[Rfam]
RNA sequence: AGGUCAUUUCAAAGAGGGCUUUUAGGGCUGUAAAACCAAGAGCUCUUAACGCUGUGACCUGAGAUUGAAUUUCUCUAUGGGAUGCCACAGUCACUCAGCAGUAGUGCUGUGCUUUGCUGAGGAGAUGGUGAA
Dot-bracket structure: .((((((......((((((((.(..((........)).)))))))))......))))))............(((((..((.(....((((.((((.......))))))))....).))..))))).......
Small nucleolar RNA SNORA25: a 132-nucleotide sequence from Castor canadensis.
Rfam's curators write: ACA25 is a member of the H/ACA class of snoRNA that guide the sites of modification of uridines to pseudouridines.
The family's consensus secondary structure was predicted with RNAfold.
Rfam classes the family as an H/ACA-box small nucleolar RNA.
The organism belongs to Castor, within Eukaryota.
The match comes from Rfam's covariance-model search (121 bits).
Rfam 15.1 lists 1,129 matches to the family in 449 species.